RNA sequence: AUUCCCAAGGGAUCUUGUUAAAAUGCAAAUUCUGAUUCAGUAAGUUGGUGGUGUCUUCAGACUUUGCAUUUCUAACAAGCUCCCUGGUGAUGCCAA
Numbered sequence: 001a002u003u004c005c006c007a008a009g010g011g012a013u014c015u016u017g018u019u020a021a022a023a024u025g026c027a028a029a030u031u032c033u034g035a036u037u038c039a040g041u042a043a044g045u046u047g048g049u050g051g052u053g054u055c056u057u058c059a060g061a062c063u064u065u066g067c068a069u070u071u072c073u074a075a076c077a078a079g080c081u082c083c084c085u086g087g088u089g090a091u092g093c094c095a096a
Stems, first nucleotide, its partner, number of pairs: 003089001005087001009083003014079007021071003025067005031061005
The family of this 96-nucleotide sequence from Lynx pardinus is "mir-544 microRNA precursor family".
Lineage of the source: Eukaryota > Opisthokonta > Craniata > Mammalia > Lynx.
The match comes from Rfam's covariance-model search (73 bits).